Overview:
Small nucleolar RNA SNORD10: a 140-nucleotide sequence from Myripristis murdjan. It is annotated as a C/D-box small nucleolar RNA. A search with the family's covariance model found it, with a score of 89 bits. Its family is annotated with nucleolus and RNA processing in the Gene Ontology. The organism belongs to Myripristis, within Eukaryota. Pairs were carried over by alignment from the consensus structure, which was predicted with WAR.

RNA sequence: GUAUAAUGAUGAAAUCCAUGCGUGUCAACUGACUCUGGAAAUGCCUUGUGUUUUGCUGCCCCAGUCAGCGUUCUGCAGACUGGGGUCAGUCAGGACAACAAGGAUCCAGAGUAAUGAUCAGAACCUCACUGUCUGAAUAC
Numbered sequence: 001g002u003a004u005a006a007u008g009a010u011g012a013a014a015u016c017c018a019u020g021c022g023u024g025u026c027a028a029c030u031g032a033c034u035c036u037g038g039a040a041a042u043g044c045c046u047u048g049u050g051u052u053u054u055g056c057u058g059c060c061c062c063a064g065u066c067a068g069c070g071u072u073c074u075g076c077a078g079a080c081u082g083g084g085g086u087c088a089g090u091c092a093g094g095a096c097a098a099c100a101a102g103g104a105u106c107c108a109g110a111g112u113a114a115u116g117a118u119c120a121g122a123a124c125c126u127c128a129c130u131g132u133c134u135g136a137a138u139a140c
Base pairs, nucleotide, nucleotide: 001140002139003138004137044103045102046101047100048099049097050096051095